[Rfam]
RNA sequence: GCCCUGUGGUUACUGUAGACUGGGAGGACUGUACAGUUCUGCAGUUGUUAAAAAUGGGCAAACAGUAACACUGUGAUAUUUGCUUAGAGCCUGAAAUGGUUAAUCUUCAGUCUCCAUAGCCCGGUCACAGAAACAGUG
Numbered sequence: 001g002c003c004c005u006g007u008g009g010u011u012a013c014u015g016u017a018g019a020c021u022g023g024g025a026g027g028a029c030u031g032u033a034c035a036g037u038u039c040u041g042c043a044g045u046u047g048u049u050a051a052a053a054a055u056g057g058g059c060a061a062a063c064a065g066u067a068a069c070a071c072u073g074u075g076a077u078a079u080u081u082g083c084u085u086a087g088a089g090c091c092u093g094a095a096a097u098g099g100u101u102a103a104u105c106u107u108c109a110g111u112c113u114c115c116a117u118a119g120c121c122c123g124g125u126c127a128c129a130g131a132a133a134c135a136g137u138g
Stems, first nucleotide, its partner, number of pairs: 001059004007050002010047001012045006019037004071130001073128005082120002085116001087114001089112001091110005